[Rfam]
RNA sequence: UCAUGAACGCCGACCUGCAGCCACACGCCGCCAGCGCCGCCCGGAUGGCCUCCGGGAUGACCUCGCGCGCGCGCCGACCGGAACCCCGCCAUUCCGCUGGGUGACCGGGGCGUCCUGCCGUCCG
Numbered sequence: 001u002c003a004u005g006a007a008c009g010c011c012g013a014c015c016u017g018c019a020g021c022c023a024c025a026c027g028c029c030g031c032c033a034g035c036g037c038c039g040c041c042c043g044g045a046u047g048g049c050c051u052c053c054g055g056g057a058u059g060a061c062c063u064c065g066c067g068c069g070c071g072c073g074c075c076g077a078c079c080g081g082a083a084c085c086c087c088g089c090c091a092u093u094c095c096g097c098u099g100g101g102u103g104a105c106c107g108g109g110g111c112g113u114c115c116u117g118c119c120g121u122c123c124g
Stems, first nucleotide, its partner, number of pairs: 032120001034118003038112003041108002043079002046076004055070001058067002080106002085101004089096001